Annotation:
A member of the RNA family "mir-1302 microRNA precursor family" from Rhinolophus ferrumequinum, 52 nucleotides long. On this family, see Morin et al., Genome Res 2008: "Application of massively parallel sequencing to microRNA profiling and discovery in human embryonic stem cells". Rfam links the family to the GO terms miRNA-mediated post-transcriptional gene silencing and RISC complex.
[Rfam]
RNA sequence: UUUUUAGUAUAAAUAUGUUCUGUGCAAUAUUUGGGACAUACAUUUACUAAAA
Numbered sequence: 001u002u003u004u005u006a007g008u009a010u011a012a013a014u015a016u017g018u019u020c021u022g023u024g025c026a027a028u029a030u031u032u033g034g035g036a037c038a039u040a041c042a043u044u045u046a047c048u049a050a051a052a
Stems, first nucleotide, its partner, number of pairs: 006048004011043001014040003018036004022031001
A search with the family's covariance model found it, with a score of 62 bits.
The family's consensus secondary structure was predicted with WAR.